RNA: Selenocysteine insertion sequence 1
Organism: Pseudonaja textilis
RNA sequence: UUUUGUUUAUGAUGUGGCUAGAUUAAAGCCCUUGGGAUGUCUAGUUGUUGAUGUGUCCAGGCAGAA
Numbered sequence: 001u002u003u004u005g006u007u008u009a010u011g012a013u014g015u016g017g018c019u020a021g022a023u024u025a026a027a028g029c030c031c032u033u034g035g036g037a038u039g040u041c042u043a044g045u046u047g048u049u050g051a052u053g054u055g056u057c058c059a060g061g062c063a064g065a066a
Stems, first nucleotide, its partner, number of pairs: 001066005014048010029036002